The family of this 79-nucleotide RNA from Medicago truncatula is "MIR5269 microRNA precursor family".
The base pairs follow the family's consensus structure, which was predicted with RNAalifold.
The match comes from Rfam's covariance-model search (61 bits).
Gene Ontology terms of the family: miRNA-mediated post-transcriptional gene silencing and RISC complex.
[Rfam]
RNA sequence: UUGAUUUAAAUUAUUGUACGUCUACAUUUUGAAAAUUGAACCUACACAAAGUGGUGAGAUAUACAUUGAUUUUAUGCAA
Numbered sequence: 001u002u003g004a005u006u007u008a009a010a011u012u013a014u015u016g017u018a019c020g021u022c023u024a025c026a027u028u029u030u031g032a033a034a035a036u037u038g039a040a041c042c043u044a045c046a047c048a049a050a051g052u053g054g055u056g057a058g059a060u061a062u063a064c065a066u067u068g069a070u071u072u073u074a075u076g077c078a079a
Stems, first nucleotide, its partner, number of pairs: 001079003006074001008072006015065004023056002025053007